[Rfam]
RNA sequence: ACGUGCUCCGGGGUCGGUGAAAUUCCGAGCCGGCGGUGACAGUCCGCGACCCGCACGUCUCACGAUGUGCGGUUGACCUGGUGAAAAUCCAGGACCGACGGUGAAAGUCCGGAUGGGAGGCAGCACUG
Number, nucleotide and partner (000 for none) at each position: 001a000002c000003g126004u125005g124006c123007u122008c119009c000010g000011g000012g000013g000014u000015c027016g026017g025018u000019g000020a000021a000022a000023u000024u000025c017026c016027g015028a000029g108030c107031c097032g096033g047034c046035g045036g044037u000038g000039a000040c000041a000042g095043u094044c036045c035046g034047c033048g000049a000050c000051c072052c071053g000054c000055a000056c000057g000058u000059c000060u000061c000062a000063c000064g000065a000066u000067g000068u000069g000070c000071g052072g051073u000074u000075g000076a000077c093078c092079u091080g090081g089082u000083g000084a000085a000086a000087a000088u000089c081090c080091a079092g078093g077094a043095c042096c032097g031098a000099c111100g110101g109102u000103g000104a000105a000106a000107g030108u029109c101110c100111g099112g000113a000114u000115g000116g000117g000118a000119g008120g000121c000122a007123g006124c005125a004126c003127u000128g000

The record is a 128-nucleotide RNA from Allobogoriella caseilytica, which matches "FMN riboswitch aptamer (RFN element)" in Rfam. About the family: The RFN element is a highly conserved domain that is found frequently in the 5'-untranslated regions of prokaryotic mRNAs that encode for flavin mononucleotide (FMN) biosynthesis and transport proteins.